Source information:
Rfam assigns this 99-nucleotide RNA sequence from Dellaglioa algida to the family "23S methyl RNA motif". The family's RNA type in Rfam is cis-regulatory element. A search with the family's covariance model found it, with a score of 60 bits.

[Rfam]
RNA sequence: GGUUGUUUAGAGAUUGUCGACAAUGUUGUCAGUUUCUGGAAAUUGGUCUUCAUUAACGUAUCUUUUCGCCGUGCCCACACCGAAAUGAUACGUUUUUUU
Numbered sequence: 001g002g003u004u005g006u007u008u009a010g011a012g013a014u015u016g017u018c019g020a021c022a023a024u025g026u027u028g029u030c031a032g033u034u035u036c037u038g039g040a041a042a043u044u045g046g047u048c049u050u051c052a053u054u055a056a057c058g059u060a061u062c063u064u065u066u067c068g069c070c071g072u073g074c075c076c077a078c079a080c081c082g083a084a085a086u087g088a089u090a091c092g093u094u095u096u097u098u099u
Stems, first nucleotide, its partner, number of pairs: 002044001004042001006040011018028002055094008064085005071080003
The literature on the family includes a 2007 paper in Nucleic Acids Res by Weinberg et al., "Identification of 22 candidate structured RNAs in bacteria using the CMfinder comparative genomics pipeline". Taxonomically the source falls in Dellaglioa algida (Bacteria, Bacillati, Bacilli, Lactobacillaceae).